[Rfam]
RNA sequence: CCGAGCAGCCGGGGUGGCAGCGGUACCCUGUAUCAGCAAUCCGCUAUAGCUGAGGUGAUAUUCUGCCGAGGGUCUUUUGAUUGCAAAGCUGCCCUUUAUAAGUGGCGAUGACGCUUGGGUCUUGCGCAACAGGAAUUUACGAACCGGGUCAGGUCAGGAAUGGAGCAGCCCUAAGUAAACACUCUUGUGUGCCGUGAGGGUGCCUGGGCUGAGUUAACUGUAAAGGUAACGUUUGUGAUCAGGAUUCGAAGCAGGAUGCUCGG
Numbered sequence: 001c002c003g004a005g006c007a008g009c010c011g012g013g014g015u016g017g018c019a020g021c022g023g024u025a026c027c028c029u030g031u032a033u034c035a036g037c038a039a040u041c042c043g044c045u046a047u048a049g050c051u052g053a054g055g056u057g058a059u060a061u062u063c064u065g066c067c068g069a070g071g072g073u074c075u076u077u078u079g080a081u082u083g084c085a086a087a088g089c090u091g092c093c094c095u096u097u098a099u100a101a102g103u104g105g106c107g108a109u110g111a112c113g114c115u116u117g118g119g120u121c122u123u124g125c126g127c128a129a130c131a132g133g134a135a136u137u138u139a140c141g142a143a144c145c146g147g148g149u150c151a152g153g154u155c156a157g158g159a160a161u162g163g164a165g166c167a168g169c170c171c172u173a174a175g176u177a178a179a180c181a182c183u184c185u186u187g188u189g190u191g192c193c194g195u196g197a198g199g200g201u202g203c204c205u206g207g208g209c210u211g212a213g214u215u216a217a218c219u220g221u222a223a224a225g226g227u228a229a230c231g232u233u234u235g236u237g238a239u240c241a242g243g244a245u246u247c248g249a250a251g252c253a254g255g256a257u258g259c260u261c262g263g
Base pairs, nucleotide, nucleotide: 001263002262003261004260005259006258007257008056009055010054011029012028013027014026015025016024018022033053034052035051036050037049061256062255063254064253065252066251070247071246072245073244074243077242078241079240080239081238082237083236084235085234086233090228091227094225095224096223097222098221099220102218103217104215105214106213113209114208115207116206117205118204119203120202121198122197123196124195125194126193127189128188130187131186132185133184134183136179137178138177139176140175146171147170148169149168154163155162156161